[Rfam]
RNA sequence: UUAGAUUUUCUUCAUUUUCUUCUGAAAUUUUUCUAGAACUCUUGUUGUUCAAGGUUGAUGGAGAUGAUAUGAAGAUGAAAAAGAGGAGAAG
Numbered sequence: 001u002u003a004g005a006u007u008u009u010c011u012u013c014a015u016u017u018u019c020u021u022c023u024g025a026a027a028u029u030u031u032u033c034u035a036g037a038a039c040u041c042u043u044g045u046u047g048u049u050c051a052a053g054g055u056u057g058a059u060g061g062a063g064a065u066g067a068u069a070u071g072a073a074g075a076u077g078a079a080a081a082a083g084a085g086g087a088g089a090a091g
Base pairs, nucleotide, nucleotide: 006084007083008082009081011079012078013077014076015075016074017073018072019071037056038055039054040053042051
RNA: MIR5298 microRNA precursor family